The record is a 479-nucleotide part of an RNA from Candidozyma haemuli, which matches "Eukaryotic large subunit ribosomal RNA" in Rfam. The family has 88 seed sequences and 107,465 matches in Rfam 15.1. Taxonomically the source falls in Candidozyma (Eukaryota, Ascomycota, Serinales, Metschnikowiaceae). Gene Ontology terms of the family: ribosome and structural constituent of ribosome. Pairs were carried over by alignment from the consensus structure, which is taken from published work.
[Rfam]
RNA sequence: UAGAACAAUGUAGAUAAGGGAAGUCGGCAAAAUGGAUCCGUAACUUCGGGAUAAGGAUUGGCUCUAAGGGUUGGGUGGUUUAGUGUUUUUUGCGGCAGCGGCGCUGCCGGCCUAGGCGGCUAACCUUUCGGGGUCGGCUGCUUGGGCUGGCAACUCCGCCAAAGCUUGGAGCGCCGCCACCAUUUGCAACCAACUUAGAACUGGUACGGACAAGGGGAAUCUGACUGUCUAAUUAAAACAUAGCAUUGCGAUGGUCAGAAAGUGAUGUUGACGCAAUGUGAUUUCUGCCCAGUGCUCUGAAUGUCAAAGUGAAGAAAUUCAACCAAGCGCGGGUAAACGGCGGGAGUAACUAUGACUCUCUUAAGGUAGCCAAAUGCCUCGUCAUCUAAUUAGUGACGCGCAUGAAUGGAUUAACGAGAUUCCCACUGUCCCUAUCUACUAUCUAGCGAAACCACAGCCAAGGGAACGGGCUUGGCAGA
Numbered sequence: 001u002a003g004a005a006c007a008a009u010g011u012a013g014a015u016a017a018g019g020g021a022a023g024u025c026g027g028c029a030a031a032a033u034g035g036a037u038c039c040g041u042a043a044c045u046u047c048g049g050g051a052u053a054a055g056g057a058u059u060g061g062c063u064c065u066a067a068g069g070g071u072u073g074g075g076u077g078g079u080u081u082a083g084u085g086u087u088u089u090u091u092g093c094g095g096c097a098g099c100g101g102c103g104c105u106g107c108c109g110g111c112c113u114a115g116g117c118g119g120c121u122a123a124c125c126u127u128u129c130g131g132g133g134u135c136g137g138c139u140g141c142u143u144g145g146g147c148u149g150g151c152a153a154c155u156c157c158g159c160c161a162a163a164g165c166u167u168g169g170a171g172c173g174c175c176g177c178c179a180c181c182a183u184u185u186g187c188a189a190c191c192a193a194c195u196u197a198g199a200a201c202u203g204g205u206a207c208g209g210a211c212a213a214g215g216g217g218a219a220u221c222u223g224a225c226u227g228u229c230u231a232a233u234u235a236a237a238a239c240a241u242a243g244c245a246u247u248g249c250g251a252u253g254g255u256c257a258g259a260a261a262g263u264g265a266u267g268u269u270g271a272c273g274c275a276a277u278g279u280g281a282u283u284u285c286u287g288c289c290c291a292g293u294g295c296u297c298u299g300a301a302u303g304u305c306a307a308a309g310u311g312a313a314g315a316a317a318u319u320c321a322a323c324c325a326a327g328c329g330c331g332g333g334u335a336a337a338c339g340g341c342g343g344g345a346g347u348a349a350c351u352a353u354g355a356c357u358c359u360c361u362u363a364a365g366g367u368a369g370c371c372a373a374a375u376g377c378c379u380c381g382u383c384a385u386c387u388a389a390u391u392a393g394u395g396a397c398g399c400g401c402a403u404g405a406a407u408g409g410a411u412u413a414a415c416g417a418g419a420u421u422c423c424c425a426c427u428g429u430c431c432c433u434a435u436c437u438a439c440u441a442u443c444u445a446g447c448g449a450a451a452c453c454a455c456a457g458c459c460a461a462g463g464g465a466a467c468g469g470g471c472u473u474g475g476c477a478g479a
Stems, first nucleotide, its partner, number of pairs: 001445004010439007018431003035059005044049001060202002063199006069191005075180005084173001086171004098160001099158003103154001105152017123134004203207001215424007222416002226240003243279008254266004283410003287341003292338002294334004299330001302329003310321004342360006361365001381397005458475005